Rfam assigns this 93-nucleotide sequence from Macaca mulatta to the family "mir-4796 microRNA precursor family". The sequence is in the family's curated seed alignment. Its family is annotated with RISC complex and miRNA-mediated post-transcriptional gene silencing in the Gene Ontology.
RNA sequence: AUGGCAGUAAAUUUGUGUCUAUACUCUGCCACUUUACUUUUGGCCUCAAGUCAUUGCGGUAAAGUGGCAGAGUGUAGACACAAAUUUAGGCCU
Numbered sequence: 001a002u003g004g005c006a007g008u009a010a011a012u013u014u015g016u017g018u019c020u021a022u023a024c025u026c027u028g029c030c031a032c033u034u035u036a037c038u039u040u041u042g043g044c045c046u047c048a049a050g051u052c053a054u055u056g057c058g059g060u061a062a063a064g065u066g067g068c069a070g071a072g073u074g075u076a077g078a079c080a081c082a083a084a085u086u087u088a089g090g091c092c093u
Stems, first nucleotide, its partner, number of pairs: 003092003008088031041053004